[Rfam]
RNA sequence: CAGAAAUGGGAGUUCCUUGCAGCCCAAAGCGCCAAGUGAGAAUUCUACUGGCAAAUUAUGUUUUGGACUGAAGGGAGCUCCCAGUUCUU
Numbered sequence: 001c002a003g004a005a006a007u008g009g010g011a012g013u014u015c016c017u018u019g020c021a022g023c024c025c026a027a028a029g030c031g032c033c034a035a036g037u038g039a040g041a042a043u044u045c046u047a048c049u050g051g052c053a054a055a056u057u058a059u060g061u062u063u064u065g066g067a068c069u070g071a072a073g074g075g076a077g078c079u080c081c082c083a084g085u086u087c088u089u
Stems, first nucleotide, its partner, number of pairs: 007083012021069002024066005
Annotation
Shown here is an 89-nucleotide RNA sequence from Medicago truncatula, a member of the family "MIR319 microRNA precursor family". Lineage of the source: Eukaryota > Fabaceae > Papilionoideae > Trifolieae > Medicago. The base pairs follow the family's consensus structure, which was predicted with RNAalifold. The family has 11 seed sequences and 168 matches in Rfam 15.1.